[Rfam]
RNA sequence: ACGAUGUUCCGCUGCGGUCUAACUCGUUAAGAGCAUUGG
Numbered sequence: 001a002c003g004a005u006g007u008u009c010c011g012c013u014g015c016g017g018u019c020u021a022a023c024u025c026g027u028u029a030a031g032a033g034c035a036u037u038g039g
Stems, first nucleotide, its partner, number of pairs: 003037007013029002015026003
This 39-nucleotide RNA from Gracilibacillus thailandensis belongs to the Rfam family "Ribosomal protein L19 leader". Pairs were carried over by alignment from the consensus structure, which was predicted with CMfinder. By type it is a cis-regulatory leader. Gene Ontology term of the family: regulation of gene expression. This family is a putative r-protein leader autoregulatory structure found in B. subtilis and other low-GC Gram-positive bacteria. It is located in the 5' untranslated regions of mRNAs encoding ribosomal protein L19 (rplS).